[Rfam]
RNA sequence: UAUUAAUAUUAUGAACUACCUAAGACUCAGGUGGCCGUUGGCCUUAAUAUCCUGCCGAGGCUAGAUGCUGGUUAAAUUGGGCAUUGUUGCUGCGGUGACAAUGCCUUUUAAUUUUAGGU
Numbered sequence: 001u002a003u004u005a006a007u008a009u010u011a012u013g014a015a016c017u018a019c020c021u022a023a024g025a026c027u028c029a030g031g032u033g034g035c036c037g038u039u040g041g042c043c044u045u046a047a048u049a050u051c052c053u054g055c056c057g058a059g060g061c062u063a064g065a066u067g068c069u070g071g072u073u074a075a076a077u078u079g080g081g082c083a084u085u086g087u088u089g090c091u092g093c094g095g096u097g098a099c100a101a102u103g104c105c106u107u108u109u110a111a112u113u114u115u116a117g118g119u
Stems, first nucleotide, its partner, number of pairs: 028054004033043003081104010

Shown here is a 119-nucleotide RNA sequence from Bombilactobacillus apium, a member of the family "Ribosomal protein L10 leader". The organism belongs to Bombilactobacillus, within Bacteria. Pairs were carried over by alignment from the consensus structure, which was predicted with CMfinder.